[Rfam]
RNA sequence: CAACUCUGGCUUCCCUUCAGAACGAAUAAAUCUUUCGCCUUUUACUAAAGAUUUCCGUGGAGGGGAGCAAUUGAUGAGUCUAACUCAAUUUUUCGUGCAUCCACCUUCGGGUGG
Number, nucleotide and partner (000 for none) at each position: 001c000002a000003a079004c078005u077006c076007u000008g000009g068010c067011u066012u065013c064014c063015c062016u061017u060018c059019a058020g000021a000022a000023c000024g000025a000026a000027u000028a054029a053030a052031u051032c050033u049034u048035u047036c000037g000038c000039c000040u000041u000042u000043u000044a000045c000046u000047a035048a034049a033050g032051a031052u030053u029054u028055c000056c000057g000058u019059g018060g017061a016062g015063g014064g013065g012066a011067g010068c009069a000070a000071u000072u000073g000074a000075u000076g006077a005078g004079u003080c000081u000082a000083a000084c000085u000086c000087a000088a000089u000090u000091u000092u000093u000094c000095g000096u000097g000098c000099a000100u000101c114102c113103a112104c111105c000106u000107u000108c000109g000110g000111g104112u103113g102114g101

Source information: U5 spliceosomal RNA: a 114-nucleotide sequence from Diaphorina citri. Rfam classes the family as a spliceosomal small nuclear RNA. About the family: U5 RNA is a component of both types of known spliceosome. NCBI's taxonomy places the organism under Eukaryota, Opisthokonta, Pterygota, Hemiptera, Diaphorina.